[Rfam]
RNA sequence: AAUUAAUAGAGACCAGAGACUAUCCAAAACGGGGCGUAACCGAAAAGCCAUACGAGUAGGGAAUUU
Number, nucleotide and partner (000 for none) at each position: 001a000002a000003u000004u000005a000006a023007u022008a021009g020010a000011g000012a000013c000014c000015a000016g000017a000018g000019a000020c009021u008022a007023u006024c000025c000026a000027a000028a000029a000030c000031g000032g000033g049034g048035c047036g000037u000038a000039a000040c060041c059042g000043a000044a000045a000046a000047g035048c034049c033050a000051u000052a000053c000054g000055a000056g000057u000058a000059g041060g040061g000062a000063a000064u000065u000066u000
RNA: DUF805 RNA